[Rfam]
mir-317 microRNA precursor family: an 85-nucleotide RNA from Asbolus verrucosus. The literature on the family includes a 2007 paper in Genome Res by Stark et al., "Systematic discovery and characterization of fly microRNAs using 12 Drosophila genomes". Taxonomically the source falls in Asbolus (Eukaryota, Ecdysozoa, Pancrustacea, Eumetabola). It scores 56 bits against the family's covariance model. Its family is annotated with miRNA-mediated post-transcriptional gene silencing and RISC complex in the Gene Ontology.
RNA sequence: AUGGGGAGGUGCUGGGGACCACCCUGUGUUUACUCUACAUCCGAGCAGUGAACACAGCUGGUGGUAUCUCAGUUUCUUCCCAUCA
Numbered sequence: 001a002u003g004g005g006g007a008g009g010u011g012c013u014g015g016g017g018a019c020c021a022c023c024c025u026g027u028g029u030u031u032a033c034u035c036u037a038c039a040u041c042c043g044a045g046c047a048g049u050g051a052a053c054a055c056a057g058c059u060g061g062u063g064g065u066a067u068c069u070c071a072g073u074u075u076c077u078u079c080c081c082a083u084c085a
Stems, first nucleotide, its partner, number of pairs: 008076002011073002015070001016068002018065002021062003024057003028053001030051002
Dot-bracket structure: .......((.((..(((((.((((((.(.((..................)).).)))..))).)).)).).)).)).........